[Rfam]
RNA: Purine riboswitch aptamer
RNA sequence: AUAAUUAAAUAAUUUUUGAUUCGUAUAACCUCACGACGACAGGGUGAGGGUUUCUACGGGAAGCCUUAACUUCCUAACUACGAAUGCGAAAUGAUCGAUU
Numbered sequence: 001a002u003a004a005u006u007a008a009a010u011a012a013u014u015u016u017u018g019a020u021u022c023g024u025a026u027a028a029c030c031u032c033a034c035g036a037c038g039a040c041a042g043g044g045u046g047a048g049g050g051u052u053u054c055u056a057c058g059g060g061a062a063g064c065c066u067u068a069a070c071u072u073c074c075u076a077a078c079u080a081c082g083a084a085u086g087c088g089a090a091a092u093g094a095u096c097g098a099u100u
Base pairs, nucleotide, nucleotide: 019085020084021083022082023081024080025079029049030048031047032046033045034044058075059074060073061072062071063070